This 116-nucleotide sequence from Trichonephila clavata belongs to the Rfam family "Potassium channel RNA editing signal". The family's consensus secondary structure is taken from published work.
[Rfam]
RNA sequence: AUUGCAGGUACGGUGACAUGGUUCCUGCGACGCCAACGGGCAAGAUUGUUGGCGGCGUUUGUUCGCUGAGCGGCGUGCUGGUGAUCGCUCUUCCCGUACCAGUCAUCGUGUCCAAU
Numbered sequence: 001a002u003u004g005c006a007g008g009u010a011c012g013g014u015g016a017c018a019u020g021g022u023u024c025c026u027g028c029g030a031c032g033c034c035a036a037c038g039g040g041c042a043a044g045a046u047u048g049u050u051g052g053c054g055g056c057g058u059u060u061g062u063u064c065g066c067u068g069a070g071c072g073g074c075g076u077g078c079u080g081g082u083g084a085u086c087g088c089u090c091u092u093c094c095c096g097u098a099c100c101a102g103u104c105a106u107c108g109u110g111u112c113c114a115a116u
Stems, first nucleotide, its partner, number of pairs: 001116002004113001007112001009110005015104003020099001023096001039079004052064001

The organism belongs to Trichonephila, within Eukaryota.